[Rfam]
RNA sequence: CUCCACUGAUUCUUUAUUUUGUGUUCGUGUCUGGGCCACUGAUGUACACUGAUGGGAUUGAGGAACUGAGGAG
Number, nucleotide and partner (000 for none) at each position: 001c073002u072003c071004c070005a000006c000007u000008g000009a000010u000011u000012c000013u000014u000015u000016a000017u000018u000019u000020u000021g000022u000023g000024u000025u000026c000027g000028u000029g000030u000031c000032u000033g000034g000035g000036c000037c000038a000039c000040u000041g000042a000043u000044g000045u000046a000047c000048a000049c000050u000051g000052a000053u000054g000055g000056g000057a000058u000059u000060g000061a000062g000063g000064a000065a000066c000067u000068g000069a000070g004071g003072a002073g001
This 73-nucleotide RNA sequence from Triplophysa rosa belongs to the Rfam family "Small nucleolar RNA SNORD66". It is annotated as a C/D-box small nucleolar RNA. snoRNA HBII-142 is part of the C/D family of snoRNAs. It is the human orthologue of the mouse MBII-142 snoRNA and is predicted to guide 2'O-ribose methylation of small 18S rRNA at residue C1272. A reference for the family is Huttenhofer et al. (2001), "RNomics: an experimental approach that identifies 201 candidates for novel, small, non-messenger RNAs in mouse", EMBO J.